A member of the RNA family "pan motif" from Listeria monocytogenes, 87 nucleotides long.
Rfam classes the family as a cis-regulatory element.
Taxonomically the source falls in Listeria monocytogenes serotype 4b (Bacteria, Bacillati, Bacilli, Listeria).
RNA sequence: UGGAUGAUACCUUUACCGGAUCAUACUAAUGCUACUAAAAAAAUAUGUUUUUUGCCUUGAUUAAAGUAAUUUAACAGGGACGAAAAG
Dot-bracket structure: ((((((((.((......))))))).)))......................((.((((((.(((((....)))))))))).)))....